[Rfam]
RNA sequence: CCACCGUGGAUAUCCCUGGAGGUCACUCUCCCCAGGCUCUGUCUUAGUGGUGUAGGGGAGCAUAGGGCUCUGCCCUGUGAUGUACGGUCCCUUUCCACGACAUUGGAGAUGAAGCUGGGCUUCGAGUCCGCGCCUGCGUAGUCCUAAGACUUCUCAAAGUCCUGUGGAUGAUGACUGGAGAGACAAGCCAUGCAGGAAACAGUC
Numbered sequence: 001c002c003a004c005c006g007u008g009g010a011u012a013u014c015c016c017u018g019g020a021g022g023u024c025a026c027u028c029u030c031c032c033c034a035g036g037c038u039c040u041g042u043c044u045u046a047g048u049g050g051u052g053u054a055g056g057g058g059a060g061c062a063u064a065g066g067g068c069u070c071u072g073c074c075c076u077g078u079g080a081u082g083u084a085c086g087g088u089c090c091c092u093u094u095c096c097a098c099g100a101c102a103u104u105g106g107a108g109a110u111g112a113a114g115c116u117g118g119g120c121u122u123c124g125a126g127u128c129c130g131c132g133c134c135u136g137c138g139u140a141g142u143c144c145u146a147a148g149a150c151u152u153c154u155c156a157a158a159g160u161c162c163u164g165u166g167g168a169u170g171a172u173g174a175c176u177g178g179a180g181a182g183a184c185a186a187g188c189c190a191u192g193c194a195g196g197a198a199a200c201a202g203u204c
Base pairs, nucleotide, nucleotide: 001106002105003104006101007100008044009043010042011041012040014036015035018029019028020027021026047098048097049096050095056091057090058089059088060085062083063082064081065078133196134195135194136193137192138191139190150182151181152180154178155177159169160168161167162166